[Rfam]
RNA: mir-608 microRNA precursor family
Organism: Pongo pygmaeus
RNA sequence: GUGGGCCAGGGGUGGUGUUCGGACAGCUGCGUUUAAAAAGCCAUCCCCAAGAGCUUCCAUCAAAGGCUGCCUCUUGGUGCAG
Numbered sequence: 001g002u003g004g005g006c007c008a009g010g011g012g013u014g015g016u017g018u019u020c021g022g023a024c025a026g027c028u029g030c031g032u033u034u035a036a037a038a039a040g041c042c043a044u045c046c047c048c049a050a051g052a053g054c055u056u057c058c059a060u061c062a063a064a065g066g067c068u069g070c071c072u073c074u075u076g077g078u079g080c081a082g
Base pairs, nucleotide, nucleotide: 002081003080005078006077007076008075009074010073011071012070013069014068015067016066018064019063021058022057023056025055026054027053028052